Rfam assigns this 95-nucleotide RNA from Gossypium barbadense to the family "Plastid-rps12 3UTR RNA". It is annotated as a cis-regulatory element. A search with the family's covariance model found it, with a score of 78 bits. Rfam 15.1 lists 1,710 matches to the family in 1,426 species. The organism belongs to Gossypium, within Eukaryota.
RNA sequence: GGUGUCCAUUGGCGCAAAUUCAAUCUUGAAUUUUAAGAUGAAAAAAUUUUCCCUAUUGGUAGCAAAUUCUUAUCCAUUAAGUGGGGAAAUCCUAU
Numbered sequence: 001g002g003u004g005u006c007c008a009u010u011g012g013c014g015c016a017a018a019u020u021c022a023a024u025c026u027u028g029a030a031u032u033u034u035a036a037g038a039u040g041a042a043a044a045a046a047u048u049u050u051c052c053c054u055a056u057u058g059g060u061a062g063c064a065a066a067u068u069c070u071u072a073u074c075c076a077u078u079a080a081g082u083g084g085g086g087a088a089a090u091c092c093u094a095u
Base pairs, nucleotide, nucleotide: 009023010022011021012020051086052085053084054083055077056076058074059073060072061071062070